[Rfam]
RNA sequence: AUGCCAGCCAAUGAGCCUGCUCACCUGAAAGUGUUUCUGCAGAAAUGUAGAGAAAGCCGGCAAUAGUAAUGCCAUGUUAUGAGCCUUAAAGACAUUGAAGCCAUUAAGGUCCCUGAAAAGGGCUAUUAAA
Numbered sequence: 001a002u003g004c005c006a007g008c009c010a011a012u013g014a015g016c017c018u019g020c021u022c023a024c025c026u027g028a029a030a031g032u033g034u035u036u037c038u039g040c041a042g043a044a045a046u047g048u049a050g051a052g053a054a055a056g057c058c059g060g061c062a063a064u065a066g067u068a069a070u071g072c073c074a075u076g077u078u079a080u081g082a083g084c085c086u087u088a089a090a091g092a093c094a095u096u097g098a099a100g101c102c103a104u105u106a107a108g109g110u111c112c113c114u115g116a117a118a119a120g121g122g123c124u125a126u127u128a129a130a
Stems, first nucleotide, its partner, number of pairs: 003061003007057001017042004071123003083110007091102001093100001